[Rfam]
RNA sequence: UUGGUUUAAAUUAUUGUGGAUCUAUAUUUUGAAAAUUGAGCUCACAUAAAGUGGUGGAAUAUACAUUGAUUUUAUCGAA
Numbered sequence: 001u002u003g004g005u006u007u008a009a010a011u012u013a014u015u016g017u018g019g020a021u022c023u024a025u026a027u028u029u030u031g032a033a034a035a036u037u038g039a040g041c042u043c044a045c046a047u048a049a050a051g052u053g054g055u056g057g058a059a060u061a062u063a064c065a066u067u068g069a070u071u072u073u074a075u076c077g078a079a
Stems, first nucleotide, its partner, number of pairs: 001079002004076001006074001008072006015065004022057003025053007
RNA: MIR5269 microRNA precursor family
Organism: Medicago truncatula